Annotation
This 67-nucleotide RNA sequence belongs to the Rfam family "Cyano-1 RNA". By type it is a small RNA. The family has 265 seed sequences and 283 matches in Rfam 15.1.
[Rfam]
RNA sequence: AUAGAUGUGAGGAGUUGGGAUCCUCCAGCAGUGGAAACAAGGAAACACUCGCUUAAAGAUCCACUAA
Numbered sequence: 001a002u003a004g005a006u007g008u009g010a011g012g013a014g015u016u017g018g019g020a021u022c023c024u025c026c027a028g029c030a031g032u033g034g035a036a037a038c039a040a041g042g043a044a045a046c047a048c049u050c051g052c053u054u055a056a057a058g059a060u061c062c063a064c065u066a067a
Stems, first nucleotide, its partner, number of pairs: 015063001018062005024056001028052002031048003